[Rfam]
RNA sequence: GGAGAGUGAACACUUGGCCACCUUCCCGUGGUACUCUCUGGGCAACAGGUUGUUAAAACCUGGCUAAGAGCCAAG
Numbered sequence: 001g002g003a004g005a006g007u008g009a010a011c012a013c014u015u016g017g018c019c020a021c022c023u024u025c026c027c028g029u030g031g032u033a034c035u036c037u038c039u040g041g042g043c044a045a046c047a048g049g050u051u052g053u054u055a056a057a058a059c060c061u062g063g064c065u066a067a068g069a070g071c072c073a074a075g
Stems, first nucleotide, its partner, number of pairs: 001039007020032003046062005
This 75-nucleotide RNA sequence from Dinothrombium tinctorium belongs to the Rfam family "HDV ribozyme from F. prausnitzii". The literature on the family includes a 2009 paper in Science by Webb et al., "Widespread occurrence of self-cleaving ribozymes". The family has 48 seed sequences and 3,803 matches in Rfam 15.1. The organism belongs to Dinothrombium, within Eukaryota. The family's consensus secondary structure is taken from published work. A search with the family's covariance model found it, with a score of 46 bits.